[Rfam]
RNA: Singlet oxygen resistance RNA X
Organism: Cereibacter changlensis
RNA sequence: AUCCCCUUGUCGCGUCGGGGACGAUUGACGCGGCACCCUCCCUGUUGGACCUGGCCGGGCCUUGUGCCCGGCCUUUUUU
Numbered sequence: 001a002u003c004c005c006c007u008u009g010u011c012g013c014g015u016c017g018g019g020g021a022c023g024a025u026u027g028a029c030g031c032g033g034c035a036c037c038c039u040c041c042c043u044g045u046u047g048g049a050c051c052u053g054g055c056c057g058g059g060c061c062u063u064g065u066g067c068c069c070g071g072c073c074u075u076u077u078u079u
Base pairs, nucleotide, nucleotide: 008035009034010033011032012031013030014029015028016027017026018025053073054072055071056070057069058068059067060066